[Rfam]
This 121-nucleotide RNA from Acidovorax sp. RAC01 belongs to the Rfam family "Glycine riboswitch aptamer". NCBI's taxonomy places the organism under Bacteria, Pseudomonadati, Pseudomonadota, Burkholderiales, Acidovorax. Rfam links the family to the GO term glycine biosynthetic process.

RNA sequence: CAAAAGCCGUCUGGAGAGCCGCUGCAACCCACUACCGGGCCUGCAGCGCACCGAAGGAGCAAACCGCAGCCCGGGUGGGAUGGCGGUGAAUCUCUCAGGUACCAAGGACAGGGGGAGCGGC
Numbered sequence: 001c002a003a004a005a006g007c008c009g010u011c012u013g014g015a016g017a018g019c020c021g022c023u024g025c026a027a028c029c030c031a032c033u034a035c036c037g038g039g040c041c042u043g044c045a046g047c048g049c050a051c052c053g054a055a056g057g058a059g060c061a062a063a064c065c066g067c068a069g070c071c072c073g074g075g076u077g078g079g080a081u082g083g084c085g086g087u088g089a090a091u092c093u094c095u096c097a098g099g100u101a102c103c104a105a106g107g108a109c110a111g112g113g114g115g116a117g118c119g120g121c
Stems, first nucleotide, its partner, number of pairs: 007115002010112004020048007050100003053096002057094003063087005